Notes
The record is a 75-nucleotide RNA sequence from Alligator mississippiensis, which matches "Mammalian CPEB3 ribozyme" in Rfam. The base pairs follow the family's consensus structure, which is taken from published work. The organism belongs to Alligator, within Eukaryota. It scores 52 bits against the family's covariance model.

RNA sequence: UUGCAAGUUCAGGGCCAUAGCAGAAGUGCUCAUGGCACAGGCGUGUCAGAUUCCAGUGAAUCUGUGAAUUCUGCU
Number, nucleotide and partner (000 for none) at each position: 001u000002u000003g000004c000005a000006a000007g000008u000009u000010c000011a000012g000013g042014g000015c040016c000017a000018u000019a075020g074021c073022a072023g071024a070025a069026g038027u037028g036029c000030u000031c000032a000033u000034g000035g000036c028037a027038c026039a000040g015041g000042c013043g000044u000045g000046u000047c064048a063049g062050a061051u060052u059053c058054c000055a000056g000057u000058g053059a052060a051061u050062c049063u048064g047065u000066g000067a000068a000069u025070u024071c023072u022073g021074c020075u019